[Rfam]
RNA sequence: CGGGUUUACUCCUGGAUGUUACCGUUUCAUCCGGCCGGAGCCGGACGGCGUUUUGGUGUCUGAUUCGGUAACCGAAUCGGGAGCACCAUCUGCGUAGGCUGGAGAUUUAAGGCUUGCGCCGCCUACGGUCUUGGACAGCCCCCGCCAGGCAGGGACCCCAAUAGGUGGCGCGCCGGCACACCGGCGCG
Numbered sequence: 001c002g003g004g005u006u007u008a009c010u011c012c013u014g015g016a017u018g019u020u021a022c023c024g025u026u027u028c029a030u031c032c033g034g035c036c037g038g039a040g041c042c043g044g045a046c047g048g049c050g051u052u053u054u055g056g057u058g059u060c061u062g063a064u065u066c067g068g069u070a071a072c073c074g075a076a077u078c079g080g081g082a083g084c085a086c087c088a089u090c091u092g093c094g095u096a097g098g099c100u101g102g103a104g105a106u107u108u109a110a111g112g113c114u115u116g117c118g119c120c121g122c123c124u125a126c127g128g129u130c131u132u133g134g135a136c137a138g139c140c141c142c143c144g145c146c147a148g149g150c151a152g153g154g155a156c157c158c159c160a161a162u163a164g165g166u167g168g169c170g171c172g173c174c175g176g177c178a179c180a181c182c183g184g185c186g187c188g
Stems, first nucleotide, its partner, number of pairs: 002158006011149004023050002028047001030045006054088006060080007092145003097140004106135009170187006
This 188-nucleotide RNA from Pseudomonas oryzae belongs to the Rfam family "Pseudomonas sRNA P27". Lineage of the source: Bacteria > Pseudomonadota > Gammaproteobacteria > Pseudomonadales > Pseudomonas. It is annotated as a small RNA. A search with the family's covariance model found it, with a score of 196 bits.